Shown here is a 160-nucleotide RNA sequence from Oribacterium sp. C9, a member of the family "Clostridiales-1 RNA". The organism belongs to Oribacterium, within Bacteria. A search with the family's covariance model found it, with a score of 114 bits. The base pairs follow the family's consensus structure, which is taken from published work. The family has 194 seed sequences and 1,172 matches in Rfam 15.1.

RNA sequence: UAAUUACAGCGUAACAAUAUCUGUUAUGAUUUCGUGCUUGCACGAAAAACAUAACAGAUAUUGAUUACGCGCCCCUGCAUGAGCAAGUAGUGGGGCAGGGCCCCCAUGGAUUGCGAAUGCAGGAGCGCGUGAGCGCGAAGCGCGGAGCGAUCCGUAAUUA
Numbered sequence: 001u002a003a004u005u006a007c008a009g010c011g012u013a014a015c016a017a018u019a020u021c022u023g024u025u026a027u028g029a030u031u032u033c034g035u036g037c038u039u040g041c042a043c044g045a046a047a048a049a050c051a052u053a054a055c056a057g058a059u060a061u062u063g064a065u066u067a068c069g070c071g072c073c074c075c076u077g078c079a080u081g082a083g084c085a086a087g088u089a090g091u092g093g094g095g096c097a098g099g100g101c102c103c104c105c106a107u108g109g110a111u112u113g114c115g116a117a118u119g120c121a122g123g124a125g126c127g128c129g130u131g132a133g134c135g136c137g138a139a140g141c142g143c144g145g146a147g148c149g150a151u152c153c154g155u156a157a158u159u160a
Stems, first nucleotide, its partner, number of pairs: 001160007010069004016062013030048002032045005076121005083114004090107002092104005122153003126149003133143004